[Rfam]
RNA: Eukaryotic large subunit ribosomal RNA, nucleotides 1530 to 1993
RNA sequence: UGGUAGUAGCAAAUACUCUGGAGAGUCCUUGGAGGACUGAUGUGGAGAAGGGCUCCGCGACAACAGUGCUUGUUCGCGAGUGAGCCGAUCCUAAGCCUAAAGAGAAAUCUUUAGUAAUGUCGAGCCUUUUGGUUCCAUUCGGGCGAAAGGGAAUCCUGUAAGCAUUCAGGGGCCCCGGUUCGGAACCGUAUCUCAGGUACUCUUACUUGUCACGGCGACGUGAAUUGCCCCAAAGACGCCCUCGGGUGCCACCAGGAGAGUUUUCUUUUCUCUUUGAGCUCGCGUACUCCAUGGAAUUCCUUAACGGAGAGAUAUGGAGCGGCUAUGCGAAGAGCGCCGCACUUGCUGCGGUGUUGGUGGUUACUCCUGGGACCUUGAAAAUUUGGGUGAGGGCCACGAGUGCAUCCGACCGGGAUCGUACCCAUUUCCGCAUCAGGUAUCCAAGGUCAAGAGCCUCUAGUCGA
Numbered sequence: 001u002g003g004u005a006g007u008a009g010c011a012a013a014u015a016c017u018c019u020g021g022a023g024a025g026u027c028c029u030u031g032g033a034g035g036a037c038u039g040a041u042g043u044g045g046a047g048a049a050g051g052g053c054u055c056c057g058c059g060a061c062a063a064c065a066g067u068g069c070u071u072g073u074u075c076g077c078g079a080g081u082g083a084g085c086c087g088a089u090c091c092u093a094a095g096c097c098u099a100a101a102g103a104g105a106a107a108u109c110u111u112u113a114g115u116a117a118u119g120u121c122g123a124g125c126c127u128u129u130u131g132g133u134u135c136c137a138u139u140c141g142g143g144c145g146a147a148a149g150g151g152a153a154u155c156c157u158g159u160a161a162g163c164a165u166u167c168a169g170g171g172g173c174c175c176c177g178g179u180u181c182g183g184a185a186c187c188g189u190a191u192c193u194c195a196g197g198u199a200c201u202c203u204u205a206c207u208u209g210u211c212a213c214g215g216c217g218a219c220g221u222g223a224a225u226u227g228c229c230c231c232a233a234a235g236a237c238g239c240c241c242u243c244g245g246g247u248g249c250c251a252c253c254a255g256g257a258g259a260g261u262u263u264u265c266u267u268u269u270c271u272c273u274u275u276g277a278g279c280u281c282g283c284g285u286a287c288u289c290c291a292u293g294g295a296a297u298u299c300c301u302u303a304a305c306g307g308a309g310a311g312a313u314a315u316g317g318a319g320c321g322g323c324u325a326u327g328c329g330a331a332g333a334g335c336g337c338c339g340c341a342c343u344u345g346c347u348g349c350g351g352u353g354u355u356g357g358u359g360g361u362u363a364c365u366c367c368u369g370g371g372a373c374c375u376u377g378a379a380a381a382u383u384u385g386g387g388u389g390a391g392g393g394c395c396a397c398g399a400g401u402g403c404a405u406c407c408g409a410c411c412g413g414g415a416u417c418g419u420a421c422c423c424a425u426u427u428c429c430g431c432a433u434c435a436g437g438u439a440u441c442c443a444a445g446g447u448c449a450a451g452a453g454c455c456u457c458u459a460g461u462c463g464a
Stems, first nucleotide, its partner, number of pairs: 016034006035462004044442003050422002056078005064072002086418003090150002095144002099111001101110003120137001122135001154171005174414004203404001206400002211222004229387006239371003244366005251358003254274006278328002282324001288318006297309004335353007428437002444456004